[Rfam]
RNA sequence: UGCCUAAACCCGCAGGACUUCCUACGGGCAUGGCUCAAAAGACCCGAUGAAGAUACUGAACCCCACGUUCAGCGACUCUUCAUCGGGCCAUAUCAGGAAACUGGUAUGGGGUCGCAAGACCU
Numbered sequence: 001u002g003c004c005u006a007a008a009c010c011c012g013c014a015g016g017a018c019u020u021c022c023u024a025c026g027g028g029c030a031u032g033g034c035u036c037a038a039a040a041g042a043c044c045c046g047a048u049g050a051a052g053a054u055a056c057u058g059a060a061c062c063c064c065a066c067g068u069u070c071a072g073c074g075a076c077u078c079u080u081c082a083u084c085g086g087g088c089c090a091u092a093u094c095a096g097g098a099a100a101c102u103g104g105u106a107u108g109g110g111g112u113c114g115c116a117a118g119a120c121c122u
Base pairs, nucleotide, nucleotide: 002034003033004032009028010027011026012025014023015022043087044086045085046084047083048082049081050080051079052078053077054074056072057071058070059069060068061067089108090107091106092105093104094103095102096101109122110121111120112119113118
RNA: LOOT RNA